[Rfam]
ybhL leader: a 78-nucleotide RNA sequence from Aquibium carbonis. NCBI's taxonomy places the organism under Bacteria, Pseudomonadati, Hyphomicrobiales, Phyllobacteriaceae, Aquibium. Rfam's curators write: This family is a putative regulatory RNA structure that is found upstream of an uncharacterized membrane protein in alpha-proteobacteria.

RNA sequence: CAGGCAUGCUGGAGUCCCGCCAGCGGCGCCUGGGGCCGUGCGCGAAAGCCGGGGCGCCCGACACCCGACGGGACAAGA
Numbered sequence: 001c002a003g004g005c006a007u008g009c010u011g012g013a014g015u016c017c018c019g020c021c022a023g024c025g026g027c028g029c030c031u032g033g034g035g036c037c038g039u040g041c042g043c044g045a046a047a048g049c050c051g052g053g054g055c056g057c058c059c060g061a062c063a064c065c066c067g068a069c070g071g072g073a074c075a076a077g078a
Stems, first nucleotide, its partner, number of pairs: 014074006025065002031060004036054001
By type it is a cis-regulatory leader.